[Rfam]
RNA sequence: AUAAUAAAAUAGGGAACAGGCGAUCAGGUUUUUACCUGAUGCGGCCGGGCUGUGAGCAGCGGUGAUGAAGUGUGACAAUUGGGAGUGCAUCUCCUGGAUUAGUCCUCUGAAUAAACCUGCGGGACCUGA
Numbered sequence: 001a002u003a004a005u006a007a008a009a010u011a012g013g014g015a016a017c018a019g020g021c022g023a024u025c026a027g028g029u030u031u032u033u034a035c036c037u038g039a040u041g042c043g044g045c046c047g048g049g050c051u052g053u054g055a056g057c058a059g060c061g062g063u064g065a066u067g068a069a070g071u072g073u074g075a076c077a078a079u080u081g082g083g084a085g086u087g088c089a090u091c092u093c094c095u096g097g098a099u100u101a102g103u104c105c106u107c108u109g110a111a112u113a114a115a116c117c118u119g120c121g122g123g124a125c126c127u128g129a
Stems, first nucleotide, its partner, number of pairs: 010128004017123001019046003023040006049057003059120004
Background: NiCo (Nickel/Cobalt) riboswitch aptamer: a 129-nucleotide sequence from Sporomusaceae bacterium FL31. Its family is annotated with cobalt ion binding and metal ion homeostasis in the Gene Ontology. Its Rfam clan is "NiCo_riboswitches". The literature on the family includes a 2015 paper in Mol Cell by Furukawa et al., "Bacterial riboswitches cooperatively bind Ni(2+) or Co(2+) ions and control expression of heavy metal transporters". The organism belongs to Sporomusaceae, within Bacteria.